Rfam assigns this 152-nucleotide RNA sequence from Sesamum indicum to the family "small nucleolar RNA snoR135". The match comes from Rfam's covariance-model search (128 bits). On this family, see Chen and Wu, Nucleic Acids Res 2009: "Mining small RNA sequencing data: a new approach to identify small nucleolar RNAs in Arabidopsis". Lineage of the source: Eukaryota > Streptophytina > Euphyllophyta > Magnoliopsida > Sesamum. The family's RNA type in Rfam is H/ACA-box small nucleolar RNA.
RNA sequence: ACAGCAGAGAAUGUGUGUAUCGGCGUUGUGCGAUUUCGAUCAAAAUGCACUAUGCUCGAAAGUGCUCUCUGCAACACUGAUUAGGGGAAGAUGGGCAGUUGUCUUUCACUCUCUUCCAUUGAAACUUUUCAACAAUCAUCUUCCCCACAUUA
Numbered sequence: 001a002c003a004g005c006a007g008a009g010a011a012u013g014u015g016u017g018u019a020u021c022g023g024c025g026u027u028g029u030g031c032g033a034u035u036u037c038g039a040u041c042a043a044a045a046u047g048c049a050c051u052a053u054g055c056u057c058g059a060a061a062g063u064g065c066u067c068u069c070u071g072c073a074a075c076a077c078u079g080a081u082u083a084g085g086g087g088a089a090g091a092u093g094g095g096c097a098g099u100u101g102u103c104u105u106u107c108a109c110u111c112u113c114u115u116c117c118a119u120u121g122a123a124a125c126u127u128u129u130c131a132a133c134a135a136u137c138a139u140c141u142u143c144c145c146c147a148c149a150u151u152a
Stems, first nucleotide, its partner, number of pairs: 004072007015050006084146011098133004